[Rfam]
RNA sequence: GGUCGCGUAACUCAGUCGGUUAGAGUGCUGAGCUAAUAACUCAGAAGUCGAGAGUUCGAGCCUCUCCGUGACCA
Numbered sequence: 001g002g003u004c005g006c007g008u009a010a011c012u013c014a015g016u017c018g019g020u021u022a023g024a025g026u027g028c029u030g031a032g033c034u035a036a037u038a039a040c041u042c043a044g045a046a047g048u049c050g051a052g053a054g055u056u057c058g059a060g061c062c063u064c065u066c067c068g069u070g071a072c073c074a
Stems, first nucleotide, its partner, number of pairs: 001073007010026004028044005050066005
This 74-nucleotide RNA sequence from Aspergillus caelatus belongs to the Rfam family "tRNA".
The base pairs follow the family's consensus structure, which is taken from published work.